[Rfam]
RNA sequence: AGCUCAGUGAUUAAGUGCCUGAAAUAGGCAAUAUACGCUAUUCCGAUUUGUAAAUGAGCAGACUUUGGAAACAGAGAAUGAGAGCU
Numbered sequence: 001a002g003c004u005c006a007g008u009g010a011u012u013a014a015g016u017g018c019c020u021g022a023a024a025u026a027g028g029c030a031a032u033a034u035a036c037g038c039u040a041u042u043c044c045g046a047u048u049u050g051u052a053a054a055u056g057a058g059c060a061g062a063c064u065u066u067g068g069a070a071a072c073a074g075a076g077a078a079u080g081a082g083a084g085c086u
Stems, first nucleotide, its partner, number of pairs: 001086005
Shown here is an 86-nucleotide RNA from Ziziphus jujuba, a member of the family "Small nucleolar RNA U54". The family's consensus secondary structure was predicted with PFOLD. Rfam 15.1 lists 614 matches to the family in 206 species. On this family, see Chen et al., Nucleic Acids Res 2003: "The high diversity of snoRNAs in plants: identification and comparative study of 120 snoRNA genes from Oryza sativa". By type it is a C/D-box small nucleolar RNA. From the family's description: U54 is a C/D box small nucleolar RNA, which acts as a methylation guide for 18S ribosomal RNA in plants. Its Rfam clan is "U54 clan".